About this RNA:
A member of the RNA family "Group II catalytic intron D1-D4-5" from Anaerobium acetethylicum, 197 nucleotides long. The family has 139 seed sequences and 720 matches in Rfam 15.1. Rfam describes the family as follows. Group II introns are found in rRNA, tRNA and mRNA of organelles in fungi, plants and protists, and also in mRNA in bacteria. On this family, see Chu et al., EMBO J 2001: "Control of branch-site choice by a group II intron".
RNA sequence: GAGAACUGAACACAUGAAUUGUCGAAUGACAGGGUAACGCCUUGAAAGGCAUCCUUAAUCCUCCGACUUGCAUGGAUAUGAGUAAACAUUGAAAUGUAAGAAGCUCGGUGAAGUCGGCAGAAAGGCACCGUAACAGUUUGGCUGACGAAAGCUACCCAGAGGUGGGCGGUGUGUCUGAUAUGCCGGAGGUCUAUAAG
Numbered sequence: 001g002a003g004a005a006c007u008g009a010a011c012a013c014a015u016g017a018a019u020u021g022u023c024g025a026a027u028g029a030c031a032g033g034g035u036a037a038c039g040c041c042u043u044g045a046a047a048g049g050c051a052u053c054c055u056u057a058a059u060c061c062u063c064c065g066a067c068u069u070g071c072a073u074g075g076a077u078a079u080g081a082g083u084a085a086a087c088a089u090u091g092a093a094a095u096g097u098a099a100g101a102a103g104c105u106c107g108g109u110g111a112a113g114u115c116g117g118c119a120g121a122a123a124g125g126c127a128c129c130g131u132a133a134c135a136g137u138u139u140g141g142c143u144g145a146c147g148a149a150a151g152c153u154a155c156c157c158a159g160a161g162g163u164g165g166g167c168g169g170u171g172u173g174u175c176u177g178a179u180a181u182g183c184c185g186g187a188g189g190u191c192u193a194u195a196a197g
Base pairs, nucleotide, nucleotide: 018052020051021050022049023048031043032042033041034040053189054188055187056186063108064107065106066105067100068099069098070097071096072095073094078089079088080087115185116184117183118182119181123176124175125174126173127172128171129147130146131145135143136142151170152169153168155166156165157164158163

Pairs were carried over by alignment from the consensus structure. The source organism's lineage runs through Bacteria, Bacillati, Bacillota, Lachnospiraceae and Anaerobium.